[Rfam]
RNA: MIR2912 microRNA precursor family
RNA sequence: UUUAAAACUUGAUAUGUGGGCUGAACACUGAACAGUGUCUGGGCUGCAGGAUAGAUUCCGACUUCUCUUUUGUUGCUACAAUUUGAACUUGAAAACGACCAUUUUAAAUGUUAGACUCUCCAUGAAAGUUUUAGGCUUAUGUCUUAGCUUUCCAUA
Numbered sequence: 001u002u003u004a005a006a007a008c009u010u011g012a013u014a015u016g017u018g019g020g021c022u023g024a025a026c027a028c029u030g031a032a033c034a035g036u037g038u039c040u041g042g043g044c045u046g047c048a049g050g051a052u053a054g055a056u057u058c059c060g061a062c063u064u065c066u067c068u069u070u071u072g073u074u075g076c077u078a079c080a081a082u083u084u085g086a087a088c089u090u091g092a093a094a095a096c097g098a099c100c101a102u103u104u105u106a107a108a109u110g111u112u113a114g115a116c117u118c119u120c121c122a123u124g125a126a127a128g129u130u131u132u133a134g135g136c137u138u139a140u141g142u143c144u145u146a147g148c149u150u151u152c153c154a155u156a
Stems, first nucleotide, its partner, number of pairs: 003154001006151002008147002011145002014142007021134005027129003035123003041119003045115001048112002051109002054105002060099001063097001068092002072088003